[Rfam]
RNA: mir-1991 microRNA precursor family
Organism: Lottia gigantea
RNA sequence: AAAGUUACCCUGUUAAUCGAAGAAGUCUUAUAUUUUAUCUCACUUCUCGUUUCACAGGGUAUAUUU
Numbered sequence: 001a002a003a004g005u006u007a008c009c010c011u012g013u014u015a016a017u018c019g020a021a022g023a024a025g026u027c028u029u030a031u032a033u034u035u036u037a038u039c040u041c042a043c044u045u046c047u048c049g050u051u052u053c054a055c056a057g058g059g060u061a062u063a064u065u066u
Stems, first nucleotide, its partner, number of pairs: 006061008015052002018049002021047006